[Rfam]
RNA sequence: GGGAUUUAUUUGGGGGUCGUUGUAGAAGCGUGCUCGUCGCGACCCCUGCCCGCCCUUUUCAGGGCUGCAAUUCUACU
Dot-bracket structure: ............((((((...[[[[[[(((.......)))))))))...(.(((((....))))).)...]]]]]].
Rfam assigns this 77-nucleotide sequence from Parnassius apollo to the family "Mammalian CPEB3 ribozyme".
Pairs were carried over by alignment from the consensus structure, which is taken from published work.
Lineage of the source: Eukaryota > Hexapoda > Aparaglossata > Ditrysia > Parnassius.
The match comes from Rfam's covariance-model search (50 bits).